[Rfam]
RNA sequence: UUGGAGAACCCGAAAAUCCAUAAAAGAGUAGGAA
Numbered sequence: 001u002u003g004g005a006g007a008a009c010c011c012g013a014a015a016a017u018c019c020a021u022a023a024a025a026g027a028g029u030a031g032g033a034a
Stems, first nucleotide, its partner, number of pairs: 002020004010032002